[Rfam]
Record summary:
This 71-nucleotide RNA sequence from Mangrovibacter sp. MFB070 belongs to the Rfam family "Fluoride riboswitch aptamer (crcB RNA motif)". Rfam links the family to the GO terms response to fluoride and positive regulation of gene expression. Pairs were carried over by alignment from the consensus structure, which is taken from published work.

RNA sequence: AAAGCACAAGGUGAUGGCGUUCCACCUUACCCAACCGCUCCAUUCAGGGGGCUGAUGACGCCUGGCGUAAC
Numbered sequence: 001a002a003a004g005c006a007c008a009a010g011g012u013g014a015u016g017g018c019g020u021u022c023c024a025c026c027u028u029a030c031c032c033a034a035c036c037g038c039u040c041c042a043u044u045c046a047g048g049g050g051g052c053u054g055a056u057g058a059c060g061c062c063u064g065g066c067g068u069a070a071c
Base pairs, nucleotide, nucleotide: 010026011025012024013023016062017061018060019059020058021057037052038051039050040049